Rfam assigns this 80-nucleotide RNA sequence from Sinimarinibacterium arenosum to the family "SAH (S-adenosyl-L-homocysteine) riboswitch aptamer". The family's consensus secondary structure is taken from published work.
Nucleotides: 080
Base pairs, nucleotide, nucleotide: 002049003048004047005046006045007044008043021036022035023034024033025032
Number, partner (000 for none) and nucleotide at each position: 001000u002049c003048c004047a005046u006045c007044g008043a009000g010000g011000g012000g013000c014000g015000c016000u017000g018000c019000g020000a021036c022035c023034u024033g025032c026000a027000u028000a029000c030000c031000c032025g033024c034023a035022g036021g037000c038000c039000a040000g041000g042000c043008u044007c045006g046005a047004u048003g049002g050000c051000c052000g053000g054000g055000a056000u057000u058000g059000a060000c061000c062000g063000c064000a065000a066000c067000a068000g069000c070000g071000c072000c073000c074000g075000c076000a077000u078000c079000c080000g